RNA sequence: GAGUGGUCCGGCGGGCGGCCGCCGGCCUACCCCGGCGACGGGGUAGGCUGAGGAACCCCCUCCCACCGCGGCCCCGCAACCGCGUAAGCGGGUCGGCGAGACGCCGAGGACCGGCGAAAGCCUCCACCGUGCAUGGGUAUGACCCUCCACGGGUGGAGGCGACGACGCGGUGGAUGUGCGUGGAAAGCCGGUCCUGCGGGGGUUAGGGUCAAGCAGGGCCUGUGAGGCGCCGCGGCGAGGUCCGGGUGGACCCCUAGACGGAUGCCGCCUAAACAGAAGAGGGGGUACGACUGGCCACUC
Numbered sequence: 001g002a003g004u005g006g007u008c009c010g011g012c013g014g015g016c017g018g019c020c021g022c023c024g025g026c027c028u029a030c031c032c033c034g035g036c037g038a039c040g041g042g043g044u045a046g047g048c049u050g051a052g053g054a055a056c057c058c059c060c061u062c063c064c065a066c067c068g069c070g071g072c073c074c075c076g077c078a079a080c081c082g083c084g085u086a087a088g089c090g091g092g093u094c095g096g097c098g099a100g101a102c103g104c105c106g107a108g109g110a111c112c113g114g115c116g117a118a119a120g121c122c123u124c125c126a127c128c129g130u131g132c133a134u135g136g137g138u139a140u141g142a143c144c145c146u147c148c149a150c151g152g153g154u155g156g157a158g159g160c161g162a163c164g165a166c167g168c169g170g171u172g173g174a175u176g177u178g179c180g181u182g183g184a185a186a187g188c189c190g191g192u193c194c195u196g197c198g199g200g201g202g203u204u205a206g207g208g209u210c211a212a213g214c215a216g217g218g219c220c221u222g223u224g225a226g227g228c229g230c231c232g233c234g235g236c237g238a239g240g241u242c243c244g245g246g247u248g249g250a251c252c253c254c255u256a257g258a259c260g261g262a263u264g265c266c267g268c269c270u271a272a273a274c275a276g277a278a279g280a281g282g283g284g285g286u287a288c289g290a291c292u293g294g295c296c297a298c299u300c
Base pairs, nucleotide, nucleotide: 001300002299003298005296008294009293010292011291012289013288014269015268016267017266018265019264023050024049025048026047027046028045029044030043031042032041033040055286056283057282058281060279062202063201064200066235067234068233069232070231071230074199075198076197077196078195080091081090082089083088093107094106095105096104097103108194109193111191112190113189114188120179121178123174124173125172126171127170128169129168130167144159145158146157147156207252208251209250210249216243217242218241219240220239
Rfam assigns this 300-nucleotide RNA from Thermofilum pendens to the family "Archaeal RNase P". Rfam classes the family as a ribozyme. Clan: RNaseP clan.